[Rfam]
RNA sequence: UAAAGUAACUAGGGGAACUUAUUUAGUUGAGAAGGUUAAAACCUGACCCUUUGAACCUGUCGGCUAAUACCGAAGUAGGGAAUGUCAUAAAACAGUAUG
Numbered sequence: 001u002a003a004a005g006u007a008a009c010u011a012g013g014g015g016a017a018c019u020u021a022u023u024u025a026g027u028u029g030a031g032a033a034g035g036u037u038a039a040a041a042c043c044u045g046a047c048c049c050u051u052u053g054a055a056c057c058u059g060u061c062g063g064c065u066a067a068u069a070c071c072g073a074a075g076u077a078g079g080g081a082a083u084g085u086c087a088u089a090a091a092a093c094a095g096u097a098u099g
Stems, first nucleotide, its partner, number of pairs: 006087001008085002011050004016044001017027003034043003056079004060073004

TPP riboswitch aptamer (THI element): a 99-nucleotide RNA sequence from [Clostridium] fimetarium.
Its family is annotated with thiamine pyrophosphate binding in the Gene Ontology.
The base pairs follow the family's consensus structure, which is taken from published work.
NCBI's taxonomy places the organism under Bacteria, Bacillati, Bacillota, Lachnospirales, Lachnoclostridium.